RNA sequence: UUACUCCUUCCAUCCCAUAAUAUAAAAGUGUUUUUGACACUAAUAUAGUGUCAAAAACACUUUUAUAUUAUGGGACGGAGGGAGUUG
Numbered sequence: 001u002u003a004c005u006c007c008u009u010c011c012a013u014c015c016c017a018u019a020a021u022a023u024a025a026a027a028g029u030g031u032u033u034u035u036g037a038c039a040c041u042a043a044u045a046u047a048g049u050g051u052c053a054a055a056a057a058c059a060c061u062u063u064u065a066u067a068u069u070a071u072g073g074g075a076c077g078g079a080g081g082g083a084g085u086u087g
Stems, first nucleotide, its partner, number of pairs: 003085003007081005013075005019069023
RNA: MIR1120/MIR1122 microRNA precursor family
Organism: Aegilops tauschii